[Rfam]
Nucleotides: 492
Base pairs, nucleotide, nucleotide: 001492002491003490004489007486008485009484012436013435014434015433016432017431018430020062021061022060023059024058034050035049036048037047038046039045073476074475075474076473077472085270086269087268088267098112099111100110101109102108113128114127115126116125117124118123130264131263132262133261134260135259136258148250149249150248438463439462440461441460442459443458
Number, partner (000 for none) and nucleotide at each position: 001492a002491c003490a004489g005000c006000a007486c008485c009484a010000a011000a012436g013435c014434c015433g016432c017431g018430a019000u020062g021061c022060u023059c024058g025000c026000u027000c028000c029000g030000u031000a032000c033000a034050g035049g036048u037047u038046g039045c040000c041000c042000u043000g044000c045039g046038c047037g048036a049035c050034u051000u052000c053000u054000c055000u056000u057000g058024c059023g060022a061021g062020c063000g064000g065000g066000c067000u068000a069000a070000g071000g072000u073476c074475u075474g076473a077472g078000c079000a080000c081000u082000c083000u084000a085270g086269u087268c088267c089000u090000c091000c092000u093000c094000g095000a096000u097000c098112g099111a100110c101109c102108c103000c104000a105000g106000c107000c108102g109101g110100g111099u112098c113128c114127a115126g116125u117124c118123g119000u120000a121000a122000u123118c124117g125116a126115c127114u128113g129000c130264g131263c132262g133261a134260c135259g136258u137000a138000c139000c140000a141000g142000a143000c144000a145000c146000a147000u148250u149249g150248c151000c152000u153000g154000a155000a156000g157000u158000a159000c160000c161000a162000u163000u164000g165000g166000u167000g168000c169000u170000a171000u172000a173000c174000a175000a176000c177000a178000c179000c180000a181000a182000a183000u184000g185000a186000c187000c188000a189000u190000g191000a192000u193000g194000u195000c196000u197000g198000c199000a200000g201000a202000g203000u204000u205000u206000g207000g208000c209000u210000g211000a212000c213000a214000g215000g216000u217000c218000g219000a220000a221000c222000c223000u224000g225000u226000g227000g228000u229000c230000a231000u232000g233000a234000g235000g236000u237000a238000g239000u240000a241000c242000u243000u244000u245000c246000u247000g248150g249149c250148a251000u252000u253000g254000a255000g256000a257000c258136a259135u260134g261133u262132c263131g264130c265000g266000a267088g268087g269086a270085c271000c272000g273000g274000g275000c276000a277000g278000a279000c280000a281000u282000g283000c284000u285000a286000u287000c288000g289000u290000a291000c292000u293000a294000g295000c296000a297000g298000u299000c300000u301000g302000u303000g304000g305000u306000a307000c308000u309000c310000c311000u312000c313000u314000u315000g316000c317000a318000a319000c320000g321000a322000c323000c324000u325000c326000g327000a328000g329000g330000c331000a332000u333000u334000u335000c336000g337000u338000a339000u340000g341000c342000a343000c344000a345000a346000c347000a348000u349000u350000a351000c352000u353000a354000u355000u356000u357000g358000g359000u360000u361000g362000u363000c364000c365000c366000u367000u368000c369000g370000a371000g372000g373000g374000c375000u376000a377000g378000a379000g380000g381000c382000u383000u384000c385000a386000u387000g388000c389000a390000g391000a392000g393000u394000g395000u396000u397000g398000u399000g400000a401000c402000a403000c404000a405000u406000a407000u408000a409000u410000u411000g412000u413000c414000u415000g416000u417000c418000c419000u420000u421000c422000a423000g424000u425000u426000c427000a428000c429000u430018u431017c432016g433015c434014g435013g436012c437000u438463c439462g440461c441460a442459c443458a444000u445000c446000u447000g448000g449000c450000u451000u452000c453000a454000u455000g456000c457000c458443u459442g460441u461440g462439c463438g464000c465000a466000a467000c468000u469000c470000g471000a472077u473076u474075c475074a476073g477000a478000c479000u480000a481000c482000u483000c484009u485008g486007g487000u488000g489004c490003u491002g492001u
Rfam assigns this 492-nucleotide RNA from Rhodonia placenta to the family "Nuclear RNase P". The organism belongs to Rhodonia, within Eukaryota. Rfam classes the family as a ribozyme. The family has 116 seed sequences and 3,848 matches in Rfam 15.1. The match comes from Rfam's covariance-model search (70 bits).